[Rfam]
RNA: mir-1421 microRNA precursor family
RNA sequence: GUGAGGAGGCCGUAUCUCCUGCGGAGUGAUGGUGGAAUCUGCCGCGAAGUGUACGACCUCCCCUCAC
Number, nucleotide and partner (000 for none) at each position: 001g065002u000003g063004a000005g061006g060007a059008g058009g057010c000011c055012g054013u053014a052015u051016c000017u049018c000019c000020u046021g045022c044023g043024g000025a000026g000027u000028g000029a000030u000031g000032g000033u000034g000035g000036a000037a000038u000039c000040u000041g000042c000043c023044g022045c021046g020047a000048a000049g017050u000051g015052u014053a013054c012055g011056a000057c009058c008059u007060c006061c005062c000063c003064u000065c001066a000067c000